[Rfam]
RNA sequence: AGCAGAGUAGGUGGACAGGCGUUAAGUGUCCGGCAGACGGGGAGUUGCUGCCGGAACGAAAAGCGUUCGCGCUUGCGGUCUGACCAUCGCAUCCCGCUGUU
Numbered sequence: 001a002g003c004a005g006a007g008u009a010g011g012u013g014g015a016c017a018g019g020c021g022u023u024a025a026g027u028g029u030c031c032g033g034c035a036g037a038c039g040g041g042g043a044g045u046u047g048c049u050g051c052c053g054g055a056a057c058g059a060a061a062a063g064c065g066u067u068c069g070c071g072c073u074u075g076c077g078g079u080c081u082g083a084c085c086a087u088c089g090c091a092u093c094c095c096g097c098u099g100u101u
Base pairs, nucleotide, nucleotide: 001101002100003099004098005097010088011087012086013085014084016082017081018080019079020077021076022075026057027056029055030054031053032052033051034050035049036048040094041093042092044090061074062073063072064071
RNA: THF (Tetrahydrofolate) riboswitch aptamer
Organism: Bianquea renquensis